[Rfam]
RNA: Small nucleolar RNA SNORD59
Organism: Trichechus manatus
RNA sequence: CCUUCUGUGAUGAUUUUAUCAGAAUGACUUUCGUUCUUCUGAAUUUGCUGAAGCCAAAUUUUUUGUCUGAGAAGG
Numbered sequence: 001c002c003u004u005c006u007g008u009g010a011u012g013a014u015u016u017u018a019u020c021a022g023a024a025u026g027a028c029u030u031u032c033g034u035u036c037u038u039c040u041g042a043a044u045u046u047g048c049u050g051a052a053g054c055c056a057a058a059u060u061u062u063u064u065g066u067c068u069g070a071g072a073a074g075g
Stems, first nucleotide, its partner, number of pairs: 001075003005071001